[Rfam]
RNA: R2 RNA element
RNA sequence: AAGUAGGAAAAGAGUGAAUAUAAAGAUAGGGAAUAGGCAUACUUCUAUACACUUGCUUGUCUCACUGUUGCCGUAGAGGGGUUUUAGUCGGUAGGUCCGAGGACUUCAUCCUCGGGAAUCCGACACUACUCAGUCGUACGGACGGCUGGGUGUCUUCUGAAGAGUUCCCCUCUUCCACGAAA
Numbered sequence: 001a002a003g004u005a006g007g008a009a010a011a012g013a014g015u016g017a018a019u020a021u022a023a024a025g026a027u028a029g030g031g032a033a034u035a036g037g038c039a040u041a042c043u044u045c046u047a048u049a050c051a052c053u054u055g056c057u058u059g060u061c062u063c064a065c066u067g068u069u070g071c072c073g074u075a076g077a078g079g080g081g082u083u084u085u086a087g088u089c090g091g092u093a094g095g096u097c098c099g100a101g102g103a104c105u106u107c108a109u110c111c112u113c114g115g116g117a118a119u120c121c122g123a124c125a126c127u128a129c130u131c132a133g134u135c136g137u138a139c140g141g142a143c144g145g146c147u148g149g150g151u152g153u154c155u156u157c158u159g160a161a162g163a164g165u166u167c168c169c170c171u172c173u174u175c176c177a178c179g180a181a182a
Base pairs, nucleotide, nucleotide: 001046053180054179055178076175077174078172079169080168081167087124088123089122090121091120096116097115098114099113100112101111102110103109126152128151129150130149131148132147